[Rfam]
RNA sequence: GAGCGUAAUCCGGACAAAGCGGAACAAGGUCGGACGCGGGGGCAGCGCCCGCCGCCUCCACCAAGACCACACCGGCCAGUGCGGGACACCCGUUUAAGGCCCAAGCCUCUGAUCAAGGUCACUCCCUAAGAUAGGUGGGAGAGCUGCGAAUCCGGUGUGGUCUUGAUGGGGGCGAAACAGGAUCGACGGCCUAGGGAAGUGGCGAACGCGCUCGGGAAUGGCUCCACCCUCAUCGGGCCGAACGGAAAGCUGUCAACGACAACUCUCCCCACUCGGGUCUCGCCCUCGCGGCGUGA
Numbered sequence: 001g002a003g004c005g006u007a008a009u010c011c012g013g014a015c016a017a018a019g020c021g022g023a024a025c026a027a028g029g030u031c032g033g034a035c036g037c038g039g040g041g042g043c044a045g046c047g048c049c050c051g052c053c054g055c056c057u058c059c060a061c062c063a064a065g066a067c068c069a070c071a072c073c074g075g076c077c078a079g080u081g082c083g084g085g086a087c088a089c090c091c092g093u094u095u096a097a098g099g100c101c102c103a104a105g106c107c108u109c110u111g112a113u114c115a116a117g118g119u120c121a122c123u124c125c126c127u128a129a130g131a132u133a134g135g136u137g138g139g140a141g142a143g144c145u146g147c148g149a150a151u152c153c154g155g156u157g158u159g160g161u162c163u164u165g166a167u168g169g170g171g172g173c174g175a176a177a178c179a180g181g182a183u184c185g186a187c188g189g190c191c192u193a194g195g196g197a198a199g200u201g202g203c204g205a206a207c208g209c210g211c212u213c214g215g216g217a218a219u220g221g222c223u224c225c226a227c228c229c230u231c232a233u234c235g236g237g238c239c240g241a242a243c244g245g246a247a248a249g250c251u252g253u254c255a256a257c258g259a260c261a262a263c264u265c266u267c268c269c270c271a272c273u274c275g276g277g278u279c280u281c282g283c284c285c286u287c288g289c290g291g292c293g294u295g296a
Stems, first nucleotide, its partner, number of pairs: 001213005015202001017200001026192001028190001030189003036052005053174007214229003

Annotation:
permuted transfer-messenger RNA: a 296-nucleotide RNA from Aureimonas sp. Leaf460. The literature on the family includes a 1996 paper in RNA by Williams and Bartel, "Phylogenetic analysis of tmRNA secondary structure". The source organism's lineage runs through Bacteria, Pseudomonadati, Hyphomicrobiales, Aurantimonadaceae and Aureimonas. The base pairs follow the family's consensus structure, which is taken from published work. It scores 99 bits against the family's covariance model. From the family's description: Bacterial tmRNA, also known as 10Sa RNA or SsrA, is named for its dual tRNA and mRNA-like properties. Its role is to liberate the mRNA from a stalled ribosome. It is annotated as a non-coding RNA gene.